[Rfam]
RNA: SAM riboswitch aptamer (S box leader)
Organism: Oceanobacillus iheyensis
RNA sequence: AACUUAUCCAGAGUGACGGAGGGAACAGGACCUACGAUGUCACAGCAACCUACCUUUACGGAGUGGUGCUUCUUCCUGCAGAAUUUUUUCUGAAAGAUAAGGU
Numbered sequence: 001a002a003c004u005u006a007u008c009c010a011g012a013g014u015g016a017c018g019g020a021g022g023g024a025a026c027a028g029g030a031c032c033u034a035c036g037a038u039g040u041c042a043c044a045g046c047a048a049c050c051u052a053c054c055u056u057u058a059c060g061g062a063g064u065g066g067u068g069c070u071u072c073u074u075c076c077u078g079c080a081g082a083a084u085u086u087u088u089u090c091u092g093a094a095a096g097a098u099a100a101g102g103u
Base pairs, nucleotide, nucleotide: 001103003101004100005099006098007097008096013043014042015041016040017039021032022031026078027077028076029075044070045069046068047067049066050065051062053060074095079092080091081090082089083088